[Rfam]
This 154-nucleotide sequence from Desulforamulus reducens belongs to the Rfam family "c-di-AMP riboswitch aptamer (ydaO/yuaA leader)". On this family, see Barrick et al., Proc Natl Acad Sci U S A 2004: "New RNA motifs suggest an expanded scope for riboswitches in bacterial genetic control". NCBI's taxonomy places the organism under Bacteria, Clostridia, Eubacteriales, Desulforamulus, Desulforamulus reducens. About the family: This family represents a conserved RNA structure found upstream of the ydaO and yuaA genes in Bacillus subtilis and related genes in other bacteria. It is one of the family's seed sequences.
RNA sequence: UAUUAAAACAGGCCGAAUCUCCGGAAAUUCCGGAGUACGGGGGACAAAAAUUAAUGGGGUGAAUCCGUAACUUUUUCGGAGGUGCAAAAAAGUACGGUAGGGUGCCCUCAACCCGAACCCGUCAGCUAACCUCGAAGGCCAGAGGAGGGUAAAA
Numbered sequence: 001u002a003u004u005a006a007a008a009c010a011g012g013c014c015g016a017a018u019c020u021c022c023g024g025a026a027a028u029u030c031c032g033g034a035g036u037a038c039g040g041g042g043g044a045c046a047a048a049a050a051u052u053a054a055u056g057g058g059g060u061g062a063a064u065c066c067g068u069a070a071c072u073u074u075u076u077c078g079g080a081g082g083u084g085c086a087a088a089a090a091a092g093u094a095c096g097g098u099a100g101g102g103u104g105c106c107c108u109c110a111a112c113c114c115g116a117a118c119c120c121g122u123c124a125g126c127u128a129a130c131c132u133c134g135a136a137g138g139c140c141a142g143a144g145g146a147g148g149g150u151a152a153a154a
Base pairs, nucleotide, nucleotide: 011140012139013138014137019035020034021033022032023031038134039133040132041131042130048055057120058119059118065097066096067095068094100114101113102112103111